[Rfam]
RNA sequence: AACGAUGUCCUUGGAGAAAUAUGCGUCAAUGGAGUCCGUCUUCUUGAGAAGCAUUUUUGAGUGAGAAUGAUUCUCAUGAUGGAUAUGUCUUCAAGGACUUCUUU
Dot-bracket structure: ((.((.(((((((((((.((((.((((..((((((...((((((((((((...)))))))).))))...)))).)).)))).)))).))))))))))).)).))
The record is a 104-nucleotide RNA sequence from Arabidopsis thaliana, which matches "MIR861 microRNA precursor family" in Rfam. Its family is annotated with miRNA-mediated post-transcriptional gene silencing and RISC complex in the Gene Ontology. It is one of the family's seed sequences. Taxonomically the source falls in Arabidopsis (Eukaryota, Tracheophyta, Spermatophyta, Gunneridae).